[Rfam]
RNA: Plastid-psbA-1 3UTR RNA
Organism: Kingdonia uniflora
RNA sequence: GUUGAAGCUCCAUCUACCGUUGGAUAAGGCUUUGUUCUUUUGGUUUUAGUGUCUAUUAUUCGUUGAAGUUGAAGGAGCAAUACCCAAGUUCUUGUUCUAUCAAGAGGGUGGGUAUUGCUCCUUCAU
Numbered sequence: 001g002u003u004g005a006a007g008c009u010c011c012a013u014c015u016a017c018c019g020u021u022g023g024a025u026a027a028g029g030c031u032u033u034g035u036u037c038u039u040u041u042g043g044u045u046u047u048a049g050u051g052u053c054u055a056u057u058a059u060u061c062g063u064u065g066a067a068g069u070u071g072a073a074g075g076a077g078c079a080a081u082a083c084c085c086a087a088g089u090u091c092u093u094g095u096u097c098u099a100u101c102a103a104g105a106g107g108g109u110g111g112g113u114a115u116u117g118c119u120c121c122u123u124c125a126u
Stems, first nucleotide, its partner, number of pairs: 009024004071124013085110002089106005